[Rfam]
RNA: Glycine riboswitch aptamer
Organism: Arthrobacter mobilis
RNA sequence: CGAACCGCGGCGGGAGAGUCCUGCCGGUGUGAACGAUCCACGGCAGGCGCCGAAGGAGCAAAUCCUCCCCGGGAAUCUCUCAGGCCCCUGUACCGCCGCGGCAAG
Numbered sequence: 001c002g003a004a005c006c007g008c009g010g011c012g013g014g015a016g017a018g019u020c021c022u023g024c025c026g027g028u029g030u031g032a033a034c035g036a037u038c039c040a041c042g043g044c045a046g047g048c049g050c051c052g053a054a055g056g057a058g059c060a061a062a063u064c065c066u067c068c069c070c071g072g073g074a075a076u077c078u079c080u081c082a083g084g085c086c087c088c089u090g091u092a093c094c095g096c097c098g099c100g101g102c103a104a105g
Base pairs, nucleotide, nucleotide: 006100007099008098009097010096011095012094013093020047021046022045023044024043025042026041049085050084051083052081053080056079057078058077063071